[Rfam]
RNA sequence: UCGCGCUGAGGUAGUAGGUUGUAUGGUUUAGAAUAAUACCAUCAGGAGAUAACUGUACAGCCUCCUAGCUUUCCCCGG
Numbered sequence: 001u002c003g004c005g006c007u008g009a010g011g012u013a014g015u016a017g018g019u020u021g022u023a024u025g026g027u028u029u030a031g032a033a034u035a036a037u038a039c040c041a042u043c044a045g046g047a048g049a050u051a052a053c054u055g056u057a058c059a060g061c062c063u064c065c066u067a068g069c070u071u072u073c074c075c076c077g078g
Stems, first nucleotide, its partner, number of pairs: 001078003005074001008071003012067003016063012042047001
Dot-bracket structure: (((.(..(((.(((.((((((((((((..............(....)....)))))))))))).))).)))..).)))
RNA: let-7 microRNA precursor family